DUF3577 RNA: a 112-nucleotide sequence. The family's consensus secondary structure is taken from published work. It is one of the family's seed sequences.

RNA sequence: CGGAUCAUAAGGCAGCACGCUGCCGAAAUCGUCUGCAAUCCGGCCAGCAUCGCGCAAGCGGUGUGACGACUUUUUCAAAUUUUUCAAUUGCUGCCAAAGGGGCAGCACCUCA
Numbered sequence: 001c002g003g004a005u006c007a008u009a010a011g012g013c014a015g016c017a018c019g020c021u022g023c024c025g026a027a028a029u030c031g032u033c034u035g036c037a038a039u040c041c042g043g044c045c046a047g048c049a050u051c052g053c054g055c056a057a058g059c060g061g062u063g064u065g066a067c068g069a070c071u072u073u074u075u076c077a078a079a080u081u082u083u084u085c086a087a088u089u090g091c092u093g094c095c096a097a098a099g100g101g102g103c104a105g106c107a108c109c110u111c112a
Base pairs, nucleotide, nucleotide: 011024012023013022014021015020029069030068031067032066033065048063049062050061051060052059053058089107090106091105092104093103094102